[Rfam]
This 82-nucleotide RNA from Flavobacterium johnsoniae belongs to the Rfam family "Flavo-1 RNA". The organism belongs to Flavobacterium johnsoniae, within Bacteria. Rfam classes the family as a small RNA.
RNA sequence: CAUUAGCCCCGAUUGAAGAGGAAAUUAUUUUGCUUUUUUCUUUAAAAAAGCAAAAUGAUUGCAACGAAAAGCGGGAACUAUU
Numbered sequence: 001c002a003u004u005a006g007c008c009c010c011g012a013u014u015g016a017a018g019a020g021g022a023a024a025u026u027a028u029u030u031u032g033c034u035u036u037u038u039u040c041u042u043u044a045a046a047a048a049a050g051c052a053a054a055a056u057g058a059u060u061g062c063a064a065c066g067a068a069a070a071g072c073g074g075g076a077a078c079u080a081u082u
Stems, first nucleotide, its partner, number of pairs: 009074003013070002018065001023060004029055002033050003036046003